[Rfam]
RNA sequence: AAUAAAAAAGACGGGAGCUUGUAGACAGGCUGAGAGGAAGGUAUGACCUUCGACCGAUAACCUGAUUUGGAUAAUGCCAACGUAGGGACGCCUUGGAAUCAUAUG
Numbered sequence: 001a002a003u004a005a006a007a008a009a010g011a012c013g014g015g016a017g018c019u020u021g022u023a024g025a026c027a028g029g030c031u032g033a034g035a036g037g038a039a040g041g042u043a044u045g046a047c048c049u050u051c052g053a054c055c056g057a058u059a060a061c062c063u064g065a066u067u068u069g070g071a072u073a074a075u076g077c078c079a080a081c082g083u084a085g086g087g088a089c090g091c092c093u094u095g096g097a098a099u100c101a102u103a104u105g
Stems, first nucleotide, its partner, number of pairs: 007094002010091001012056003017030005037051005061086004067080004
A member of the RNA family "TPP riboswitch aptamer (THI element)" from Blautia argi, 105 nucleotides long. NCBI's taxonomy places the organism under Bacteria, Bacillota, Clostridia, Lachnospiraceae, Blautia. It scores 59 bits against the family's covariance model.